SAM riboswitch aptamer (S box leader): a 114-nucleotide RNA sequence from Alkalihalobacillus trypoxylicola. Rfam describes the family as follows. The SAM riboswitch is found upstream of a number of genes which code for proteins involved in methionine or cysteine biosynthesis in Gram-positive bacteria. The source organism's lineage runs through Bacteria, Bacillota, Bacilli, Bacillaceae and Alkalihalobacillus. A search with the family's covariance model found it, with a score of 76 bits.
[Rfam]
RNA sequence: CUCUUAUCCCGAGUCGGUGGAGGGACAGGCCCUAAGAAACCCAGCAACCAUCAUUUCAUUGAAAAGAAAUGAAAAGGUGCUAACCUGCAAGGUAUAAUCCUUGGAUGAUAAGAG
Numbered sequence: 001c002u003c004u005u006a007u008c009c010c011g012a013g014u015c016g017g018u019g020g021a022g023g024g025a026c027a028g029g030c031c032c033u034a035a036g037a038a039a040c041c042c043a044g045c046a047a048c049c050a051u052c053a054u055u056u057c058a059u060u061g062a063a064a065a066g067a068a069a070u071g072a073a074a075a076g077g078u079g080c081u082a083a084c085c086u087g088c089a090a091g092g093u094a095u096a097a098u099c100c101u102u103g104g105a106u107g108a109u110a111a112g113a114g
Stems, first nucleotide, its partner, number of pairs: 001114008013042001016041003022032003026087004043081004048077002051072007083106001088103005